A member of the RNA family "mir-23 microRNA precursor family" from Chanos chanos, 75 nucleotides long. Rfam links the family to the GO terms gene silencing by miRNA and RISC complex. The family has 83 seed sequences and 1,403 matches in Rfam 15.1. A search with the family's covariance model found it, with a score of 58 bits.
[Rfam]
RNA sequence: AGCCAGGGGAAUUCCUGGCAGCGUGAUUUUUACACAUUAAUGACUGAAUCACAUUGCCAGGGAUUUCCAAUGGCU
Numbered sequence: 001a002g003c004c005a006g007g008g009g010a011a012u013u014c015c016u017g018g019c020a021g022c023g024u025g026a027u028u029u030u031u032a033c034a035c036a037u038u039a040a041u042g043a044c045u046g047a048a049u050c051a052c053a054u055u056g057c058c059a060g061g062g063a064u065u066u067c068c069a070a071u072g073g074c075u
Stems, first nucleotide, its partner, number of pairs: 001075001003073003009068001011064011023052007